[Rfam]
Nucleotides: 401
Base pairs, nucleotide, nucleotide: 001397002396003395004394005393006392007391008390010388011387012329013328014327015326016325017324018323020041021040023038024037025036026035027034046385047384048383050382051381052380053379054378055223056222057221058220062266063265064264065263067219068218069217070216071215072086073085074084075083076082087101088099089098090097091096102214103213107212108211109208110207111206123155124154125151126150127149132145133144134143135142136141163181164180165179166178167177168176183204184203185202186201187200188199189198190197191196227286228285229284235277236276237275238274239273240272257271258270259269260268261267293312294311295310296309297308298307299306300305
Number, partner (000 for none) and nucleotide at each position: 001397a002396a003395a004394g005393u006392u007391u008390g009000a010388c011387a012329g013328a014327c015326a016325a017324u018323c019000g020041c021040u022000g023038g024037c025036a026035g027034c028000c029000a030000u031000g032000a033000u034027g035026c036025u037024g038023c039000g040021a041020g042000a043000g044000g045000a046385a047384a048383g049000u050382c051381c052380g053379g054378g055223c056222u057221c058220c059000a060000c061000a062266a063265g064264g065263c066000a067219g068218g069217a070216u071215g072086c073085u074084g075083g076082a077000u078000a079000a080000c081000g082076u083075c084074c085073a086072g087101u088099c089098g090097g091096c092000g093000c094000g095000a096091g097090c098089u099088g100000a101087a102214g103213g104000a105000u106000a107212g108211u109208g110207c111206c112000a113000c114000a115000g116000a117000a118000a119000u120000g121000g122000a123155c124154c125151g126150c127149c128000g129000a130000u131000g132145g133144c134143u135142g136141a137000u138000u139000g140000a141136u142135c143134a144133g145132c146000a147000c148000a149127g150126g151125c152000a153000a154124g155123g156000g157000u158000g159000g160000a161000a162000c163181c164180g165179u166178g167177g168176u169000g170000u171000a172000a173000g174000a175000g176168a177167c178166c179165a180164c181163g182000a183204g184203g185202a186201g187200c188199g189198u190197a191196g192000g193000u194000g195000a196191c197190u198189a199188c200187g201186u202185u203184c204183c205000u206111g207110g208109u209000a210000a211108a212107c213103c214102c215071c216070a217069u218068c219067u220058g221057g222056a223055g224000c225000a226000a227286a228285a229284c230000c231000g232000a233000g234000a235277g236276a237275a238274c239273a240272c241000g242000g243000c244000a245000g246000c247000u248000u249000a250000u251000g252000c253000u254000g255000c256000a257271a258270c259269c260268u261267u262000a263065g264064c265063c266062u267261g268260a269259g270258g271257u272240g273239u274238g275237u276236u277235c278000g279000g280000g281000u282000g283000a284229g285228u286227u287000g288000c289000u290000u291000g292000a293312g294311c295310u296309a297308u298307g299306u300305a301000g302000c303000a304000a305300u306299a307298u308297a309296u310295a311294g312293c313000c314000u315000a316000g317000a318000u319000a320000g321000a322000u323018g324017a325016u326015u327014g328013u329012c330000g331000c332000u333000c334000a335000u336000c337000g338000u339000g340000g341000g342000a343000g344000g345000g346000u347000c348000g349000u350000u351000c352000c353000c354000g355000u356000u357000a358000u359000a360000a361000c362000c363000a364000c365000u366000a367000a368000g369000a370000g371000u372000a373000c374000a375000g376000a377000a378054c379053c380052c381051g382050g383048c384047u385046u386000a387011u388010g389000g390008c391007a392006a393005g394004c395003u396002u397001u398000c399000c400000g401000c
A member of the RNA family "Bacterial RNase P class A" from Paenibacillus montaniterrae, 401 nucleotides long.
The match comes from Rfam's covariance-model search (273 bits).
Rfam links the family to the GO terms dimeric ribonuclease P complex, ribonuclease P activity and tRNA processing.
It is annotated as a ribozyme.
Ribonuclease P (RNase P) is a ubiquitous endoribonuclease, found in archaea, bacteria and eukarya as well as chloroplasts and mitochondria.